This 165-nucleotide part of an RNA from Steinernema hermaphroditum belongs to the Rfam family "Eukaryotic small subunit ribosomal RNA". A reference for the family is Yusupov et al. (2001), "Crystal structure of the ribosome at 5.5 A resolution", Science. The organism belongs to Steinernema, within Eukaryota. A search with the family's covariance model found it, with a score of 1647 bits.
RNA sequence: CCGCCCGUCGCUGCCCGGGACUGAGUUGUUUCGAGAAAAGCGGAGACUGCUUCUCUGAGCGUUUUCGGACGUGAAUUGAGGCGAGAACCGCGUUAAUCGAAACGGCUUGAACCGGGCAAAAGUCGUAACAAGGUUUCCGUAGGUGAACCUGCGGAAGGAUCAUUA
Numbered sequence: 001c002c003g004c005c006c007g008u009c010g011c012u013g014c015c016c017g018g019g020a021c022u023g024a025g026u027u028g029u030u031u032c033g034a035g036a037a038a039a040g041c042g043g044a045g046a047c048u049g050c051u052u053c054u055c056u057g058a059g060c061g062u063u064u065u066c067g068g069a070c071g072u073g074a075a076u077u078g079a080g081g082c083g084a085g086a087a088c089c090g091c092g093u094u095a096a097u098c099g100a101a102a103c104g105g106c107u108u109g110a111a112c113c114g115g116g117c118a119a120a121a122g123u124c125g126u127a128a129c130a131a132g133g134u135u136u137c138c139g140u141a142g143g144u145g146a147a148c149c150u151g152c153g154g155a156a157g158g159a160u161c162a163u164u165a
Stems, first nucleotide, its partner, number of pairs: 001132001003129001006125002009122001012118007021109001023108012037094002040091004048083006056075001059072004134157010